[Rfam]
RNA sequence: UAUCGUAAAAGGCAAACUUACCGAAAGGUAAGGACGCAAAGCUCCGGGUCUUAGGUUGCACCCGCAACGAUGACGGCUGGGCUGCCGAC
Numbered sequence: 001u002a003u004c005g006u007a008a009a010a011g012g013c014a015a016a017c018u019u020a021c022c023g024a025a026a027g028g029u030a031a032g033g034a035c036g037c038a039a040a041g042c043u044c045c046g047g048g049u050c051u052u053a054g055g056u057u058g059c060a061c062c063c064g065c066a067a068c069g070a071u072g073a074c075g076g077c078u079g080g081g082c083u084g085c086c087g088a089c
Stems, first nucleotide, its partner, number of pairs: 012037002017032006040083004045079003048074003055068004
The family of this 89-nucleotide sequence from Paenibacillus silvestris is "c-di-GMP-I riboswitch aptamer". The match comes from Rfam's covariance-model search (80 bits). The organism belongs to Paenibacillus, within Bacteria.